tRNA: a 73-nucleotide sequence from Zancudomyces culisetae.
Nucleotides: 073
Base pairs, nucleotide, nucleotide: 001072002071003070004069005068006067007066010025011024012023013022027043028042029041030040031039049065050064051063052062053061
Number, partner (000 for none) and nucleotide at each position: 001072g002071g003070u004069c005068g006067c007066g008000u009000g010025g011024c012023c013022u014000a015000a016000u017000g018000g019000a020000u021000a022013a023012g024011g025010c026000g027043u028042c029041a030040g031039a032000c033000u034000u035000c036000g037000g038000a039031u040030c041029u042028g043027a044000a045000g046000a047000u048000u049065g050064u051063g052062g053061g054000u055000u056000c057000g058000a059000g060000u061053c062052c063051c064050a065049u066007u067006g068005u069004g070003a071002u072001c073000g

The organism belongs to Zancudomyces, within Eukaryota.
About the family: Transfer RNA (tRNA) molecules are approximately 80 nucleotides in length.
It scores 63 bits against the family's covariance model.
A reference for the family is Lowe and Eddy (1997), "tRNAscan-SE: a program for improved detection of transfer RNA genes in genomic sequence", Nucleic Acids Res.
The base pairs follow the family's consensus structure, which is taken from published work.
The family's RNA type in Rfam is transfer RNA.